[Rfam]
RNA sequence: AGCUGAUAAAGCCACAGCCGUCGCGAGGCGGUGUCGGAAAGCCACGGAUCUCUCGGGAGGAGACCGCCGGGUUACCACG
Numbered sequence: 001a002g003c004u005g006a007u008a009a010a011g012c013c014a015c016a017g018c019c020g021u022c023g024c025g026a027g028g029c030g031g032u033g034u035c036g037g038a039a040a041g042c043c044a045c046g047g048a049u050c051u052c053u054c055g056g057g058a059g060g061a062g063a064c065c066g067c068c069g070g071g072u073u074a075c076c077a078c079g
Stems, first nucleotide, its partner, number of pairs: 012037002017032006040073004045069003049063005